[Rfam]
RNA sequence: GUUAAUUUAUCCAAUAUAGAACACUCAUAUCGAUAAAAUAAUUUGAACCAUUU
Numbered sequence: 001g002u003u004a005a006u007u008u009a010u011c012c013a014a015u016a017u018a019g020a021a022c023a024c025u026c027a028u029a030u031c032g033a034u035a036a037a038a039u040a041a042u043u044u045g046a047a048c049c050a051u052u053u
Base pairs, nucleotide, nucleotide: 012032014030015029016028017027

A member of the RNA family "Plastid-atpF group II-D1 intron" from Colocasia esculenta, 53 nucleotides long.
Rfam links the family to the GO term Group II intron splicing.
Rfam describes the family as follows. Plastid atpF is a non-coding RNA (ncRNA) recognised in plastids. It has been reported in the intron group II-D1 region of ATP synthase (atpF) genes.
The family has 49 seed sequences and 1,372 matches in Rfam 15.1.
The match comes from Rfam's covariance-model search (59 bits).
The source organism's lineage runs through Eukaryota, Magnoliopsida, Mesangiospermae, Araceae and Colocasia.
Pairs were carried over by alignment from the consensus structure, which was predicted with LocARNA.